[Rfam]
RNA sequence: CCAGACGGCCAGAUGGCCGCCUUCGGCCGCCCGGCAACGGGCGGCCGGGGGAGGAAAGUCCGGGCUCCACGGAAACACGGUGCCGGGUAACACCCGGCGGGGGCGACCCCAGGGACAGUGCCACAGAAACAUACCGCCGGACCGGCGACGGAACGGUAAGGGUGAAAUGGUGCGGUAAGAGCGCACCGCAUGGCCGGCAACGGCCAUGGCCGGGCAAACCCCACCGGGAGCAAGACCAAGUAGGGACAGCAGGCCCCUGAUUUCCUUCGGGAAAUUCGGGACCGGGCGGUUUUCGAGCCGCUGUCCGGGUCGGUCGCGCGAGGCGUUCGGCAACGAACGUCCCAGAUGAAUGGCCAUCGCCGGGGCGCUGGUUCGCCAGCCGCUCCGGGCACAGAACCCGGCUUAUCGGCCGUCUGGCAUU
Numbered sequence: 001c002c003a004g005a006c007g008g009c010c011a012g013a014u015g016g017c018c019g020c021c022u023u024c025g026g027c028c029g030c031c032c033g034g035c036a037a038c039g040g041g042c043g044g045c046c047g048g049g050g051g052a053g054g055a056a057a058g059u060c061c062g063g064g065c066u067c068c069a070c071g072g073a074a075a076c077a078c079g080g081u082g083c084c085g086g087g088u089a090a091c092a093c094c095c096g097g098c099g100g101g102g103g104c105g106a107c108c109c110c111a112g113g114g115a116c117a118g119u120g121c122c123a124c125a126g127a128a129a130c131a132u133a134c135c136g137c138c139g140g141a142c143c144g145g146c147g148a149c150g151g152a153a154c155g156g157u158a159a160g161g162g163u164g165a166a167a168u169g170g171u172g173c174g175g176u177a178a179g180a181g182c183g184c185a186c187c188g189c190a191u192g193g194c195c196g197g198c199a200a201c202g203g204c205c206a207u208g209g210c211c212g213g214g215c216a217a218a219c220c221c222c223a224c225c226g227g228g229a230g231c232a233a234g235a236c237c238a239a240g241u242a243g244g245g246a247c248a249g250c251a252g253g254c255c256c257c258u259g260a261u262u263u264c265c266u267u268c269g270g271g272a273a274a275u276u277c278g279g280g281a282c283c284g285g286g287c288g289g290u291u292u293u294c295g296a297g298c299c300g301c302u303g304u305c306c307g308g309g310u311c312g313g314u315c316g317c318g319c320g321a322g323g324c325g326u327u328c329g330g331c332a333a334c335g336a337a338c339g340u341c342c343c344a345g346a347u348g349a350a351u352g353g354c355c356a357u358c359g360c361c362g363g364g365g366c367g368c369u370g371g372u373u374c375g376c377c378a379g380c381c382g383c384u385c386c387g388g389g390c391a392c393a394g395a396a397c398c399c400g401g402c403u404u405a406u407c408g409g410c411c412g413u414c415u416g417g418c419a420u421u
Stems, first nucleotide, its partner, number of pairs: 001417010011406001012358007020051013056404003060401005065230004074293002078226005083097005098112001099110004113221002118219002120215003134161002136157004142151003169187006188210001189208008234315004244306006285299003322341008
RNA: Bacterial RNase P class A
Organism: Hypericibacter adhaerens